The family of this 88-nucleotide sequence from Enterovirus alpharhino is "Enterovirus 5' cloverleaf cis-acting replication element". The literature on the family includes a 2001 paper in EMBO J by Barton et al., "5' cloverleaf in poliovirus RNA is a cis-acting replication element required for negative-strand synthesis". Rfam's curators write: This family represents a cis-regulatory element found at the 5' end of Enterovirus genomes. The element has a cloverleaf like secondary structure and is known to be a multifunctional cis-acting replication element (CRE), required for the initiation of negative strand RNA synthesis. By type it is a cis-regulatory element.
[Rfam]
RNA sequence: UUAAAACUGGGUGUGGGUUGUUCCCACUCACACCACCCAAUGGGUGUUGUACUCUGUUAUUCCGGUAACUUUGUACGCCAUUUUCCCU
Numbered sequence: 001u002u003a004a005a006a007c008u009g010g011g012u013g014u015g016g017g018u019u020g021u022u023c024c025c026a027c028u029c030a031c032a033c034c035a036c037c038c039a040a041u042g043g044g045u046g047u048u049g050u051a052c053u054c055u056g057u058u059a060u061u062c063c064g065g066u067a068a069c070u071u072u073g074u075a076c077g078c079c080a081u082u083u084u085c086c087c088u
Stems, first nucleotide, its partner, number of pairs: 003084004010034009035045003046078002049076004056069004